The record is a 163-nucleotide RNA from Haemaphysalis longicornis, which matches "U1 spliceosomal RNA" in Rfam. By type it is a spliceosomal small nuclear RNA.
RNA sequence: AUACUUACCUGGUGCCGGGCUGUUCGGUGGUCAAUAUGGUCGGCGCCCCAAGUGGAGGCCGGUCAUUGCACUGCGAUCGGCUGAAGCUUGCCCCUACUCCAAACUGGGGUAGGUGGGGCAUGUAAUUUUUGGUAGUGGGGUCAGGCGUUCGCGCCGGCCCCAC
Numbered sequence: 001a002u003a004c005u006u007a008c009c010u011g012g013u014g015c016c017g018g019g020c021u022g023u024u025c026g027g028u029g030g031u032c033a034a035u036a037u038g039g040u041c042g043g044c045g046c047c048c049c050a051a052g053u054g055g056a057g058g059c060c061g062g063u064c065a066u067u068g069c070a071c072u073g074c075g076a077u078c079g080g081c082u083g084a085a086g087c088u089u090g091c092c093c094c095u096a097c098u099c100c101a102a103a104c105u106g107g108g109g110u111a112g113g114u115g116g117g118g119c120a121u122g123u124a125a126u127u128u129u130u131g132g133u134a135g136u137g138g139g140g141u142c143a144g145g146c147g148u149u150c151g152c153g154c155c156g157g158c159c160c161c162a163c
Stems, first nucleotide, its partner, number of pairs: 012121004017048004024043005050089004057082003061078004091117003094113001095111002098108002136162005142157001144155004
Dot-bracket structure: ...........((((.((((...(((((..........))))).)))).((((...(((.((((..........)))).)))...)))).((((((.((.......)).)).).)))))))..............(((((.(.((((....)))).)))))).
A search with the family's covariance model found it, with a score of 115 bits. On this family, see Zwieb, Nucleic Acids Res 1997: "The uRNA database". Its Rfam clan is "U1 clan".